[Rfam]
RNA sequence: ACAUAGCCUCGAUAGGAAUGACAUCCUUUUUGGUUGCGGGUUUUGCUUUGCUCCACCCACAACCAAAAAGAUAUAAUGGAUAGCGGGAAAAAGC
Numbered sequence: 001a002c003a004u005a006g007c008c009u010c011g012a013u014a015g016g017a018a019u020g021a022c023a024u025c026c027u028u029u030u031u032g033g034u035u036g037c038g039g040g041u042u043u044u045g046c047u048u049u050g051c052u053c054c055a056c057c058c059a060c061a062a063c064c065a066a067a068a069a070g071a072u073a074u075a076a077u078g079g080a081u082a083g084c085g086g087g088a089a090a091a092a093g094c
Stems, first nucleotide, its partner, number of pairs: 009086003013082002018077002023072003029067008

Shown here is a 94-nucleotide RNA from Chryseobacterium sp. RU37D, a member of the family "Flavo-1 RNA". Taxonomically the source falls in Chryseobacterium (Bacteria, Pseudomonadati, Flavobacteriales, Weeksellaceae).